[Rfam]
RNA sequence: UUAUAAGAUAGAGGCGCGAAUUUAAAGAGUAGCGGGACGGAAGCUGCCAGAGCUGUUGAUUUUCCGUGAAAGGUAAACUCGCCGAAGGGGAUUUCAGGGCAGAAAUUCACCUGGUUGCUAUUGUGAAUAACAUUGCAACUGUCAUCAUGUUUUUGUGAUGGAGCGCUAUCGACAAG
Numbered sequence: 001u002u003a004u005a006a007g008a009u010a011g012a013g014g015c016g017c018g019a020a021u022u023u024a025a026a027g028a029g030u031a032g033c034g035g036g037a038c039g040g041a042a043g044c045u046g047c048c049a050g051a052g053c054u055g056u057u058g059a060u061u062u063u064c065c066g067u068g069a070a071a072g073g074u075a076a077a078c079u080c081g082c083c084g085a086a087g088g089g090g091a092u093u094u095c096a097g098g099g100c101a102g103a104a105a106u107u108c109a110c111c112u113g114g115u116u117g118c119u120a121u122u123g124u125g126a127a128u129a130a131c132a133u134u135g136c137a138a139c140u141g142u143c144a145u146c147a148u149g150u151u152u153u154u155g156u157g158a159u160g161g162a163g164c165g166c167u168a169u170c171g172a173c174a175a176g
Stems, first nucleotide, its partner, number of pairs: 007170005016082004021077004032067006039060001086112003089108007113140006120133002142161007